Rfam assigns this 138-nucleotide RNA sequence from Jaculus jaculus to the family "Small Cajal body specific RNA 11". It scores 149 bits against the family's covariance model. The family has 24 seed sequences and 853 matches in Rfam 15.1. On this family, see Darzacq et al., EMBO J 2002: "Cajal body-specific small nuclear RNAs: a novel class of 2'-O-methylation and pseudouridylation guide RNAs". scaRNAs are a specific class of small nuclear RNAs which localise to the Cajal bodies and guide the modification of RNA polymerase II transcribed spliceosomal RNAs U1, U2, U4, U5 and U12. ACA57 belongs to the H/ACA box class of guide RNAs as it has the predicted hairpin-hinge-hairpin-tail structure, conserved H/ACA-box motifs and is found associated with GAR1. ACA57 is predicted to guide the pseudouridylation of the U5 spliceosomal RNA at position U43. Pairs were carried over by alignment from the consensus structure, which was predicted with RNAalifold. NCBI's taxonomy places the organism under Eukaryota, Amniota, Glires, Dipodinae, Jaculus. Rfam classes the family as a small Cajal body RNA.
RNA sequence: UUGUCCUGGCCUGUGCUCUCUGCUCCCCUGUGCUCAGCUAUAACAGGGGAGUGUGGCAGGACACACAGCAACUUCCCUCUCAGUUUAGGAGAGCUAUCCUAAGAAUGGGACUGGCUCUUAAAGGCACGAGAGGACAGC
Numbered sequence: 001u002u003g004u005c006c007u008g009g010c011c012u013g014u015g016c017u018c019u020c021u022g023c024u025c026c027c028c029u030g031u032g033c034u035c036a037g038c039u040a041u042a043a044c045a046g047g048g049g050a051g052u053g054u055g056g057c058a059g060g061a062c063a064c065a066c067a068g069c070a071a072c073u074u075c076c077c078u079c080u081c082a083g084u085u086u087a088g089g090a091g092a093g094c095u096a097u098c099c100u101a102a103g104a105a106u107g108g109g110a111c112u113g114g115c116u117c118u119u120a121a122a123g124g125c126a127c128g129a130g131a132g133g134a135c136a137g138c
Base pairs, nucleotide, nucleotide: 002063003062004061005060006059007058008057010056011055022052023051024050026048027047028046029045030044031043076133077132078131079130080129081128083125084124085123086122089119090118091117092116093115094114095113097110098109099108100107101106